Record summary:
The record is a 457-nucleotide sequence from Plectosphaerella cucumerina, which matches "Nuclear RNase P" in Rfam. Lineage of the source: Eukaryota > leotiomyceta > Sordariomycetes > Plectosphaerellaceae > Plectosphaerella. Gene Ontology terms of the family: tRNA processing, ribonuclease P complex and ribonuclease P activity. The family is grouped with related families in Rfam's "RNaseP clan". From the family's description: Ribonuclease P (RNase P) is a ubiquitous endoribonuclease, found in archaea, bacteria and eukarya as well as chloroplasts and mitochondria. The family's consensus secondary structure is taken from published work.
RNA sequence: UUUGAGCAGGUUGCGCUUCGAUGCCCACAAACAGAGAGUCUGCGCAAGCAGUCUCUCGUCUCUUUCGGGAACCCCUUCCGGCAUGCGAGUAAAUUCGGAGUAUUCUCUAUCUCUUCCUUGUCCCCUCGUGGGACCUGGAACACACCACCCAAUGUCUCCUCGCGUCCUCGGGCGCGGGCGAUGACGGGUCUGCCCGCGAGGGUCUGGCGCGUCUCUGCGCUUGCAAGUGGCAUCAGAAAUCUCAGAGCCCGGGAGAGGGGAGAGGCGGGACGGAGGGGGGUUCUUCGGGGCCUUUCUCUCGACUGCUUCUUCUUUUCCUUUCGGUGUCCUCUAUGGGAAGCCUUUGCGGAGAUUGUACACGGUACUUGAGUGCGAUGCGCAACUUGCGAGUGUCCCUCGGGUCUCCUUCGGGGGAUUCGACGGCCUUGCAAAAUUCGAUUCCGAUUAUUCGCUCAGA
Numbered sequence: 001u002u003u004g005a006g007c008a009g010g011u012u013g014c015g016c017u018u019c020g021a022u023g024c025c026c027a028c029a030a031a032c033a034g035a036g037a038g039u040c041u042g043c044g045c046a047a048g049c050a051g052u053c054u055c056u057c058g059u060c061u062c063u064u065u066c067g068g069g070a071a072c073c074c075c076u077u078c079c080g081g082c083a084u085g086c087g088a089g090u091a092a093a094u095u096c097g098g099a100g101u102a103u104u105c106u107c108u109a110u111c112u113c114u115u116c117c118u119u120g121u122c123c124c125c126u127c128g129u130g131g132g133a134c135c136u137g138g139a140a141c142a143c144a145c146c147a148c149c150c151a152a153u154g155u156c157u158c159c160u161c162g163c164g165u166c167c168u169c170g171g172g173c174g175c176g177g178g179c180g181a182u183g184a185c186g187g188g189u190c191u192g193c194c195c196g197c198g199a200g201g202g203u204c205u206g207g208c209g210c211g212u213c214u215c216u217g218c219g220c221u222u223g224c225a226a227g228u229g230g231c232a233u234c235a236g237a238a239a240u241c242u243c244a245g246a247g248c249c250c251g252g253g254a255g256a257g258g259g260g261a262g263a264g265g266c267g268g269g270a271c272g273g274a275g276g277g278g279g280g281u282u283c284u285u286c287g288g289g290g291c292c293u294u295u296c297u298c299u300c301g302a303c304u305g306c307u308u309c310u311u312c313u314u315u316u317c318c319u320u321u322c323g324g325u326g327u328c329c330u331c332u333a334u335g336g337g338a339a340g341c342c343u344u345u346g347c348g349g350a351g352a353u354u355g356u357a358c359a360c361g362g363u364a365c366u367u368g369a370g371u372g373c374g375a376u377g378c379g380c381a382a383c384u385u386g387c388g389a390g391u392g393u394c395c396c397u398c399g400g401g402u403c404u405c406c407u408u409c410g411g412g413g414g415a416u417u418c419g420a421c422g423g424c425c426u427u428g429c430a431a432a433a434u435u436c437g438a439u440u441c442c443g444a445u446u447a448u449u450c451g452c453u454c455a456g457a
Stems, first nucleotide, its partner, number of pairs: 001457002005453003010383007021084003034057005096443005105351004192203004206221005223347005229341001244332003384431007